[Rfam]
RNA: mir-29 microRNA precursor family
RNA sequence: GGAAGCUGGUUUCAUAUGGUGGUUUAGAUUUAAAAAGUGAUUGUCUAGCACCAUUUGAAAUCAGUGUUCU
Numbered sequence: 001g002g003a004a005g006c007u008g009g010u011u012u013c014a015u016a017u018g019g020u021g022g023u024u025u026a027g028a029u030u031u032a033a034a035a036a037g038u039g040a041u042u043g044u045c046u047a048g049c050a051c052c053a054u055u056u057g058a059a060a061u062c063a064g065u066g067u068u069c070u
Stems, first nucleotide, its partner, number of pairs: 001070004005065010016054006025047004